[Rfam]
Rfam assigns this 93-nucleotide RNA sequence from Oryza brachyantha to the family "Small nucleolar RNA Z152/R70/R12/". On this family, see Barneche et al., J Mol Biol 2001: "Identification of 66 box C/D snoRNAs in Arabidopsis thaliana: extensive gene duplications generated multiple isoforms predicting new ribosomal RNA 2'-O-methylation sites".
RNA sequence: AAUGCAAUGAUGAUUCUUAGGAUAAUUGGCAGUGGCGACGUCAGUCGCCGUGAGCUUUCAUCCAAAAAACGACUUCUCUUUCCACUGAGCAUU
Numbered sequence: 001a002a003u004g005c006a007a008u009g010a011u012g013a014u015u016c017u018u019a020g021g022a023u024a025a026u027u028g029g030c031a032g033u034g035g036c037g038a039c040g041u042c043a044g045u046c047g048c049c050g051u052g053a054g055c056u057u058u059c060a061u062c063c064a065a066a067a068a069a070c071g072a073c074u075u076c077u078c079u080u081u082c083c084a085c086u087g088a089g090c091a092u093u
Stems, first nucleotide, its partner, number of pairs: 001093005
Dot-bracket structure: (((((...................................................................................)))))

By type it is a C/D-box small nucleolar RNA.